Rfam assigns this 134-nucleotide RNA sequence from Channa argus to the family "Small nucleolar RNA SNORA5". Rfam describes the family as follows. ACA5 is a member of the H/ACA class of snoRNA that guide the sites of modification of uridines to pseudouridines. The source organism's lineage runs through Eukaryota, Opisthokonta, Euteleosteomorpha, Eurypterygia and Channa. The family's consensus secondary structure was predicted with RNAfold. The family's RNA type in Rfam is H/ACA-box small nucleolar RNA. Clan: SNORA5 clan.
[Rfam]
RNA sequence: CGCAGCUUUGUCAAAUUCAGUGCUCCGUUUUCAGUAGGCUGCACUGGCCAAAAUGGCUGCAACACUGAUUGUAGUUCAUGGGCCCCACAUUACUUACAAUGGUCUGUGGGGAUAAAUAUGCACUACAGACAAGA
Numbered sequence: 001c002g003c004a005g006c007u008u009u010g011u012c013a014a015a016u017u018c019a020g021u022g023c024u025c026c027g028u029u030u031u032c033a034g035u036a037g038g039c040u041g042c043a044c045u046g047g048c049c050a051a052a053a054u055g056g057c058u059g060c061a062a063c064a065c066u067g068a069u070u071g072u073a074g075u076u077c078a079u080g081g082g083c084c085c086c087a088c089a090u091u092a093c094u095u096a097c098a099a100u101g102g103u104c105u106g107u108g109g110g111g112a113u114a115a116a117u118a119u120g121c122a123c124u125a126c127a128g129a130c131a132a133g134a
Base pairs, nucleotide, nucleotide: 002060003059004058005057018046019045020044021043022042023041026038028036071126072125073124074123075122076120083111084110085109087107088106